[Rfam]
This 157-nucleotide RNA from Firmicutes bacterium AF36-19BH belongs to the Rfam family "FMN riboswitch aptamer (RFN element)". NCBI's taxonomy places the organism under Bacteria, Bacillati, Bacillota.
RNA sequence: AAAGUUCUUCAGGGUCGGGUGCAAGUCCCAACCGGUGGUAUAGCCCACGAGCCUUUCGCUGUAUAAGUCAGCGGGGCAUGAUUCGGUGAUCCUUCUGCAAUGGGAGCAGACGGAAACUCCGAAGCCGACAGUACAGUCUGGAUGGAAGAAGAUGAUU
Numbered sequence: 001a002a003a004g005u006u007c008u009u010c011a012g013g014g015u016c017g018g019g020u021g022c023a024a025g026u027c028c029c030a031a032c033c034g035g036u037g038g039u040a041u042a043g044c045c046c047a048c049g050a051g052c053c054u055u056u057c058g059c060u061g062u063a064u065a066a067g068u069c070a071g072c073g074g075g076g077c078a079u080g081a082u083u084c085g086g087u088g089a090u091c092c093u094u095c096u097g098c099a100a101u102g103g104g105a106g107c108a109g110a111c112g113g114a115a116a117c118u119c120c121g122a123a124g125c126c127g128a129c130a131g132u133a134c135a136g137u138c139u140g141g142a143u144g145g146a147a148g149a150a151g152a153u154g155a156u157u
Base pairs, nucleotide, nucleotide: 006152007151008150009149010148017029018028019027031137032136033127034126035048036047037046038045043125044124053076054075055074056073082123083122084121085120086119129140130139131138